[Rfam]
RNA sequence: AUAUCUUCAAUUUAUGAAUAAGGAAAAUAACAAAUUGGGGUGAUGCCCGAAUCCUCAAUGCUAAUGUGAGAUGAAUUUUUGAGCGGGUAAAGAUUGCCCCUAAGGUGACGCGCCUACUUUGCAAGAUGCCUGGGAGUCGCAAGGCUCAUCCCCCCG
Numbered sequence: 001a002u003a004u005c006u007u008c009a010a011u012u013u014a015u016g017a018a019u020a021a022g023g024a025a026a027a028u029a030a031c032a033a034a035u036u037g038g039g040g041u042g043a044u045g046c047c048c049g050a051a052u053c054c055u056c057a058a059u060g061c062u063a064a065u066g067u068g069a070g071a072u073g074a075a076u077u078u079u080u081g082a083g084c085g086g087g088u089a090a091a092g093a094u095u096g097c098c099c100c101u102a103a104g105g106u107g108a109c110g111c112g113c114c115u116a117c118u119u120u121g122c123a124a125g126a127u128g129c130c131u132g133g134g135a136g137u138c139g140c141a142a143g144g145c146u147c148a149u150c151c152c153c154c155c156g
Base pairs, nucleotide, nucleotide: 004023005022006021007020033052035050036049037048038047039046054070055069056068057067084156085155086154087153091146092145094142095141096140097139100134101133103131104130105129106128107127109125112122113121
RNA: U12 minor spliceosomal RNA